[Rfam]
RNA sequence: GAGUAAUGAUGAAAAAGUCUAUUACUGAUCUUUUUAACUAUGAAGAUUUCUACACUUGACCUGAGCUCA
Numbered sequence: 001g002a003g004u005a006a007u008g009a010u011g012a013a014a015a016a017g018u019c020u021a022u023u024a025c026u027g028a029u030c031u032u033u034u035u036a037a038c039u040a041u042g043a044a045g046a047u048u049u050c051u052a053c054a055c056u057u058g059a060c061c062u063g064a065g066c067u068c069a
Stems, first nucleotide, its partner, number of pairs: 001068004013033003017029003

The record is a 69-nucleotide RNA sequence from Sciurus carolinensis, which matches "Small nucleolar RNA U2-30" in Rfam. Rfam links the family to the GO terms nucleolus and RNA processing. The family has 21 seed sequences and 664 matches in Rfam 15.1. The family's RNA type in Rfam is C/D-box small nucleolar RNA. For this family Rfam cites "Guide RNAs with 5' Caps and Novel Box C/D snoRNA-like Domains for Modification of snRNAs in Metazoa" (Tycowski et al., Curr Biol, 2004).